[Rfam]
RNA sequence: GGGCGAUGAUUAUAAAGAGAGAGGCUUGAGUGGGGAGUGUGAACAAAACUCUUGUGGGAUGUAGAAAAACCCAAAUCGAAAUCGAAGGAGAAGUAGAGAUGAUAAAAUGUCUCUUUAUUUUUCCCUUUUUCGAAUCUUUGGGCUAUUUUUCUUCAUCCCUUUCCCUCGAUGACGGUCCUUCCAUUUCGUACACUUGAUAUGAGCCCU
Numbered sequence: 001g002g003g004c005g006a007u008g009a010u011u012a013u014a015a016a017g018a019g020a021g022a023g024g025c026u027u028g029a030g031u032g033g034g035g036a037g038u039g040u041g042a043a044c045a046a047a048a049c050u051c052u053u054g055u056g057g058g059a060u061g062u063a064g065a066a067a068a069a070c071c072c073a074a075a076u077c078g079a080a081a082u083c084g085a086a087g088g089a090g091a092a093g094u095a096g097a098g099a100u101g102a103u104a105a106a107a108u109g110u111c112u113c114u115u116u117a118u119u120u121u122u123c124c125c126u127u128u129u130u131c132g133a134a135u136c137u138u139u140g141g142g143c144u145a146u147u148u149u150u151c152u153u154c155a156u157c158c159c160u161u162u163c164c165c166u167c168g169a170u171g172a173c174g175g176u177c178c179u180u181c182c183a184u185u186u187c188g189u190a191c192a193c194u195u196g197a198u199a200u201g202a203g204c205c206c207u
Base pairs, nucleotide, nucleotide: 001206002205003204004203009198010197011196012195021167022166023165024164027054028053029052030051032049038045039044056160057159058158061156064150065149066148067147068144070142071141072140073138074135076133077132078131079130080129081128087124088123089122090121091120092119093118095114096113097112098111100105169189170188171187172186174182175181
RNA: Small nucleolar RNA snoR125